[Rfam]
RNA sequence: AUGUUAUCAAGAAAGGUGGAGGGAAUAGACCCUUUGAUACCUUAGCAACCCUUUGAAUUACCGGUAACCUGUCGGGUCAAAGAAGGUGCUACAUUCUAUCGGCCUUUGGCGGACAGAUAACGA
Dot-bracket structure: .(((((((....(((((...(((..[[[[)))......)))))((((.((((((((....................))))))..))))))...(]]]](((.(....).)))..)))))))).